[Rfam]
RNA sequence: AACAAAGCAAAGCCGAAUUCCGUAUGGAAGCGGAGGACCCACCUUUUUGGGGUGAAUUCUGCCACAAGCAGAAAGGAUGUUUACCUCUCUUGCCAUCCUAACCCGACAGCUAACUUCGUAGGCUAAAGCAAAGAGGUCGA
Numbered sequence: 001a002a003c004a005a006a007g008c009a010a011a012g013c014c015g016a017a018u019u020c021c022g023u024a025u026g027g028a029a030g031c032g033g034a035g036g037a038c039c040c041a042c043c044u045u046u047u048u049g050g051g052g053u054g055a056a057u058u059c060u061g062c063c064a065c066a067a068g069c070a071g072a073a074a075g076g077a078u079g080u081u082u083a084c085c086u087c088u089c090u091u092g093c094c095a096u097c098c099u100a101a102c103c104c105g106a107c108a109g110c111u112a113a114c115u116u117c118g119u120a121g122g123c124u125a126a127a128g129c130a131a132a133g134a135g136g137u138c139g140a
Base pairs, nucleotide, nucleotide: 011124012123013122014121018029019028020027030119031118032117033116034115035114040049041048050104051103052102058072059071060070061069075098076097077096078095
The family of this 140-nucleotide sequence from Thermosinus carboxydivorans is "c-di-AMP riboswitch aptamer (ydaO/yuaA leader)". The base pairs follow the family's consensus structure. NCBI's taxonomy places the organism under Bacteria, Bacillati, Bacillota, Sporomusaceae, Thermosinus carboxydivorans.